[Rfam]
RNA sequence: CGGAGUCGUCCAGUAUUCUUGAGUUCAAAAGAUUUGAGAGCUGAGAGGUGACCACGACUUCGACAAAUCUACAGGCACUAAAUUUCUAACUUUAAAAAGAAGAAAUCGAAAGUGUCACCUAGUUACUGACGAAAGGUGUCUACAUAGUUAUGGGUCGUCCAUAGCCACUGAAGCUCGAAAGGCCGAUGUGAUUUCACCUAAAAGCUUAUAGAGGGUCGAACCUCGAAUCAGUCCGGCAGGGUUGAAUAAGCGGAUUAAGUGGAGAGUAGUUAGUAACUCAAGUAGUGAUUGGUCUAACCAAUUGACACUGACAGAAUACUUCUCAAAAGGAAGUGGAUAAGAAGGGAAACCAUAAUCUAACAAAAGUUCUGUCUUUAUAAGGUGUAAUCUCAGCCU
Number, nucleotide and partner (000 for none) at each position: 001c062002g061003g060004a059005g058006u057007c056008g055009u054010c000011c043012a042013g041014u040015a000016u000017u039018c038019u037020u036021g035022a034023g033024u032025u031026c000027a000028a000029a000030a000031g025032a024033u023034u022035u021036g020037a019038g018039a017040g014041c013042u012043g011044a000045g000046a120047g119048g118049u117050g116051a115052c114053c000054a009055c008056g007057a006058c005059u004060u003061c002062g001063a000064c000065a000066a000067a000068u000069c000070u000071a000072c000073a000074g000075g000076c000077a000078c000079u000080a000081a000082a000083u000084u000085u000086c000087u000088a000089a000090c000091u000092u000093u000094a000095a000096a000097a000098a000099g000100a000101a000102g000103a000104a000105a000106u178107c177108g000109a000110a000111a000112g000113u000114g052115u051116c050117a049118c048119c047120u046121a278122g277123u276124u275125a274126c273127u272128g271129a270130c269131g000132a000133a000134a000135g000136g308137u307138g306139u305140c304141u000142a000143c000144a000145u000146a000147g165148u164149u163150a162151u161152g160153g000154g000155u000156c000157g000158u000159c000160c152161a151162u150163a149164g148165c147166c190167a189168c188169u000170g000171a000172a000173g183174c182175u181176c000177g107178a106179a000180a000181g175182g174183c173184c000185g000186a000187u000188g168189u167190g166191a000192u000193u263194u262195c261196a260197c259198c000199u000200a000201a000202a000203a000204g000205c000206u249207u248208a247209u246210a000211g224212a223213g222214g221215g000216u000217c000218g000219a000220a000221c214222c213223u212224c211225g000226a000227a000228u245229c244230a243231g000232u241233c240234c000235g000236g000237c000238a000239g000240g233241g232242u000243u230244g229245a228246a209247u208248a207249a206250g000251c000252g000253g000254a000255u000256u000257a000258a000259g197260u196261g195262g194263a193264g000265a000266g000267u000268a000269g130270u129271u128272a127273g126274u125275a124276a123277c122278u121279c000280a000281a000282g000283u000284a000285g000286u000287g303288a302289u301290u300291g299292g298293u000294c000295u000296a000297a000298c292299c291300a290301a289302u288303u287304g140305a139306c138307a137308c136309u000310g373311a372312c371313a000314g369315a368316a367317u335318a334319c333320u332321u331322c330323u329324c000325a000326a000327a000328a000329g323330g322331a321332a320333g319334u318335g317336g389337a388338u387339a000340a000341g361342a000343a000344g358345g357346g356347a000348a000349a000350c000351c000352a000353u000354a000355a000356u346357c345358u344359a000360a000361c341362a000363a000364a000365a000366g000367u316368u315369c314370u000371g312372u311373c310374u000375u000376u000377a000378u000379a000380a000381g395382g394383u393384g000385u000386a000387a338388u337389c336390u000391c000392a000393g383394c382395c381396u000

Giant, ornate, lake- and Lactobacillales-derived (GOLLD) RNA: a 396-nucleotide RNA. Rfam classes the family as a non-coding RNA gene. It is one of the family's seed sequences. A reference for the family is Weinberg et al. (2009), "Exceptional structured noncoding RNAs revealed by bacterial metagenome analysis", Nature. The family's consensus secondary structure is taken from published work.